[Rfam]
RNA: mir-1302 microRNA precursor family
Organism: Nomascus leucogenys
RNA sequence: UUUUCGGUAUAAAUAUGUACCAUGAAAUAUUUGGCACAUAUUUAUACUAAAA
Numbered sequence: 001u002u003u004u005c006g007g008u009a010u011a012a013a014u015a016u017g018u019a020c021c022a023u024g025a026a027a028u029a030u031u032u033g034g035c036a037c038a039u040a041u042u043u044a045u046a047c048u049a050a051a052a
Base pairs, nucleotide, nucleotide: 006048007047008046009045010044011043012042014040015039016038018036020034021033022031
Dot-bracket structure: .....(((((((.(((.(.(((........).)).).))).)))))))....